This 109-nucleotide sequence from Nocardioides marmotae belongs to the Rfam family "TPP riboswitch aptamer (THI element)". NCBI's taxonomy places the organism under Bacteria, Actinomycetes, Propionibacteriales, Nocardioidaceae, Nocardioides. Rfam's curators write: Vitamin B(1) in its active form thiamin pyrophosphate (TPP) is an essential coenzyme that is synthesised by coupling of pyrimidine and thiazole moieties in bacteria.
RNA sequence: CUCACACGACAGGGGAGCGCGCGCAGGCGUGCUGAGAGUGCAGAUCAGCUGCAGACCCUCUGAACCUGCUCCGGUUAACACCGGCGAAGGGAGUCACCAUGAGAUCCGU
Numbered sequence: 001c002u003c004a005c006a007c008g009a010c011a012g013g014g015g016a017g018c019g020c021g022c023g024c025a026g027g028c029g030u031g032c033u034g035a036g037a038g039u040g041c042a043g044a045u046c047a048g049c050u051g052c053a054g055a056c057c058c059u060c061u062g063a064a065c066c067u068g069c070u071c072c073g074g075u076u077a078a079c080a081c082c083g084g085c086g087a088a089g090g091g092a093g094u095c096a097c098c099a100u101g102a103g104a105u106c107c108g109u
Base pairs, nucleotide, nucleotide: 008095009094010093011059012058013057014056017032018031019030020029021028039053040052041051042050043049065090066089067088071084072083073082074081